[Rfam]
Rfam assigns this 180-nucleotide RNA sequence from Acipenser ruthenus to the family "Small nucleolar RNA SNORA23". Rfam 15.1 lists 1,092 matches to the family in 632 species. Rfam links the family to the GO terms nucleolus and RNA processing. Rfam's curators write: The members of this family belong to the H/ACA class of snoRNAs which are thought to guide the sites of modification of uridines to pseudouridines. This family includes human snoRNA ACA23 (SNORA23) and mouse snoMBI-1. ACA23 is predicted to guide the pseudouridylation of residue U3737 and U4331 of 28S rRNA. The family's consensus secondary structure was predicted with RNAalifold.

RNA sequence: GGCUGCCUGUGUGCUUGGUGAUGGUCCAUGUUUAGUGUUGCUGUUUGUUUGUGUCUUGCAAUCGGACAGCAGCGCUCACACAAUGCCAGUAGCCAAAGAGAAACCUGAGAUCAUAGUACUGGUCUAGUGAAGUCUCUGUGACAAUCUACCACUGGCCAGCCUCCAAACUCUCAGACAGUA
Numbered sequence: 001g002g003c004u005g006c007c008u009g010u011g012u013g014c015u016u017g018g019u020g021a022u023g024g025u026c027c028a029u030g031u032u033u034a035g036u037g038u039u040g041c042u043g044u045u046u047g048u049u050u051g052u053g054u055c056u057u058g059c060a061a062u063c064g065g066a067c068a069g070c071a072g073c074g075c076u077c078a079c080a081c082a083a084u085g086c087c088a089g090u091a092g093c094c095a096a097a098g099a100g101a102a103a104c105c106u107g108a109g110a111u112c113a114u115a116g117u118a119c120u121g122g123u124c125u126a127g128u129g130a131a132g133u134c135u136c137u138g139u140g141a142c143a144a145u146c147u148a149c150c151a152c153u154g155g156c157c158a159g160c161c162u163c164c165a166a167a168c169u170c171u172c173a174g175a176c177a178g179u180a
Stems, first nucleotide, its partner, number of pairs: 013090003029082003033078001035076001036074006043067005050060003106173005119159006126153004132142003